Record summary: This 304-nucleotide RNA from Dreissena polymorpha belongs to the Rfam family "Arthropod 7SK RNA". Rfam classes the family as a non-coding RNA gene. The base pairs follow the family's consensus structure, which is taken from published work.
RNA sequence: GGAGCGUGUGUCCCGGUCGACACAUCUGAACAUCGAUCGCUGACUACGGCUGAUCUGCUCAGUAAGCUGUCCCUUCACACGUUUCACAUACCGGAGCUCUCGCUGCCUCGCCGCACGAUCGAGCACCACUCCAAAUUGGCCCGCGUUCGCUCUCAUUGGGUUGAGCGCGUGUGCCGUAGGGUUUACAACGUUUCUACCGGGCUUCUCGAGAAUUCGUUCUAACUAAUUGGGAAGUUUGGGGUGACUCAAUCGUUUAUGACGCUCCAAGUCGGCACUGCGACGUCAGCAGUCUGCCAUUCUUUUA
Numbered sequence: 001g002g003a004g005c006g007u008g009u010g011u012c013c014c015g016g017u018c019g020a021c022a023c024a025u026c027u028g029a030a031c032a033u034c035g036a037u038c039g040c041u042g043a044c045u046a047c048g049g050c051u052g053a054u055c056u057g058c059u060c061a062g063u064a065a066g067c068u069g070u071c072c073c074u075u076c077a078c079a080c081g082u083u084u085c086a087c088a089u090a091c092c093g094g095a096g097c098u099c100u101c102g103c104u105g106c107c108u109c110g111c112c113g114c115a116c117g118a119u120c121g122a123g124c125a126c127c128a129c130u131c132c133a134a135a136u137u138g139g140c141c142c143g144c145g146u147u148c149g150c151u152c153u154c155a156u157u158g159g160g161u162u163g164a165g166c167g168c169g170u171g172u173g174c175c176g177u178a179g180g181g182u183u184u185a186c187a188a189c190g191u192u193u194c195u196a197c198c199g200g201g202c203u204u205c206u207c208g209a210g211a212a213u214u215c216g217u218u219c220u221a222a223c224u225a226a227u228u229g230g231g232a233a234g235u236u237u238g239g240g241g242u243g244a245c246u247c248a249a250u251c252g253u254u255u256a257u258g259a260c261g262c263u264c265c266a267a268g269u270c271g272g273c274a275c276u277g278c279g280a281c282g283u284c285a286g287c288a289g290u291c292u293g294c295c296a297u298u299c300u301u302u303u304a
Stems, first nucleotide, its partner, number of pairs: 001265007016078002026062003031057002035055004039050004271295003274290005